[Rfam]
RNA sequence: AGGAAACGAGGACGGGGACGGGGAGAUGAGUCCCCCCGAGUCCUCCUCGGACAAAUAGGCUCA
Numbered sequence: 001a002g003g004a005a006a007c008g009a010g011g012a013c014g015g016g017g018a019c020g021g022g023g024a025g026a027u028g029a030g031u032c033c034c035c036c037c038g039a040g041u042c043c044u045c046c047u048c049g050g051a052c053a054a055a056u057a058g059g060c061u062c063a
Stems, first nucleotide, its partner, number of pairs: 014047003017042003021037003028062005
Annotation: A member of the RNA family "Ma3 gene ribosomal frameshift signal" from Pteropus vampyrus, 63 nucleotides long. Rfam 15.1 lists 565 matches to the family in 155 species. The family's consensus secondary structure is taken from published work. A search with the family's covariance model found it, with a score of 36 bits. By type it is a frameshift element. The organism belongs to Pteropus, within Eukaryota. Rfam links the family to the GO term translational frameshifting.